[Rfam]
RNA sequence: UUCAAAGAUAAUAAAGCGUUUUCAAAAUAUCGAAAGGAGCUUGAGAAAAUGGGUACAAUUGUUUGUCAAACUUGCAACUCCACUAUUGAACAUUUUGAAGAUGAAAAAGUAACUGUUCUGUAUUCAAAGGGCCAUUGCUGCGACGGAGAGCACCUCGAAGAAGAAUAAAAAUAUAAACGGUGUGGAGCAUGCAGGCAGGAUUGCGUGCUUCUUU
Numbered sequence: 001u002u003c004a005a006a007g008a009u010a011a012u013a014a015a016g017c018g019u020u021u022u023c024a025a026a027a028u029a030u031c032g033a034a035a036g037g038a039g040c041u042u043g044a045g046a047a048a049a050u051g052g053g054u055a056c057a058a059u060u061g062u063u064u065g066u067c068a069a070a071c072u073u074g075c076a077a078c079u080c081c082a083c084u085a086u087u088g089a090a091c092a093u094u095u096u097g098a099a100g101a102u103g104a105a106a107a108a109g110u111a112a113c114u115g116u117u118c119u120g121u122a123u124u125c126a127a128a129g130g131g132c133c134a135u136u137g138c139u140g141c142g143a144c145g146g147a148g149a150g151c152a153c154c155u156c157g158a159a160g161a162a163g164a165a166u167a168a169a170a171a172u173a174u175a176a177a178c179g180g181u182g183u184g185g186a187g188c189a190u191g192c193a194g195g196c197a198g199g200a201u202u203g204c205g206u207g208c209u210u211c212u213u214u
Base pairs, nucleotide, nucleotide: 016110017109019108020107021106022105025102028099030098031097032096033095034094035093039091041089050085051084052083062077063076136152137151138150139149171212173210177206178205179204180201181200
The family of this 214-nucleotide RNA from Bacillus sp. V3-13 is "SR1 sRNA". Lineage of the source: Bacteria > Bacillati > Caryophanales > Bacillaceae > Bacillus. Gene Ontology terms of the family: negative regulation of translational initiation and translation repressor activity, mRNA regulatory element binding. The base pairs follow the family's consensus structure, which is taken from published work. Rfam classes the family as a small RNA. A search with the family's covariance model found it, with a score of 68 bits. The literature on the family includes a 2007 paper in Nucleic Acids Res by Heidrich et al., "In vitro analysis of the interaction between the small RNA SR1 and its primary target ahrC mRNA".